[Rfam]
Notes: A member of the RNA family "FMN riboswitch aptamer (RFN element)" from Halobacillus sp. BAB-2008, 149 nucleotides long. A search with the family's covariance model found it, with a score of 103 bits. Taxonomically the source falls in Halobacillus (Bacteria, Bacillati, Bacillota, Bacilli).
RNA sequence: GAGAACCUUCGGGGUCGGGUGAAAAUCCCAGCCGGCGGAAAGAGCAGCUGCUCCAAGCCCGCGACGGAAAGUCAGUGUUAAGCACGGCUUUCCCUGAUUUGGUGAAAAUCCAAAGCCGACAGUGAAAGUCUGGAUGGGAGAAGGUUGUA
Numbered sequence: 001g002a003g004a005a006c007c008u009u010c011g012g013g014g015u016c017g018g019g020u021g022a023a024a025a026u027c028c029c030a031g032c033c034g035g036c037g038g039a040a041a042g043a044g045c046a047g048c049u050g051c052u053c054c055a056a057g058c059c060c061g062c063g064a065c066g067g068a069a070a071g072u073c074a075g076u077g078u079u080a081a082g083c084a085c086g087g088c089u090u091u092c093c094c095u096g097a098u099u100u101g102g103u104g105a106a107a108a109u110c111c112a113a114a115g116c117c118g119a120c121a122g123u124g125a126a127a128g129u130c131u132g133g134a135u136g137g138g139a140g141a142a143g144g145u146u147g148u149a
Base pairs, nucleotide, nucleotide: 004146005145006144007143008142009141010140017029018028019027031129032128033118034117035062036061037060038059057116058115066093067092068091069090070089071088098114099113100112101111102110120132121131122130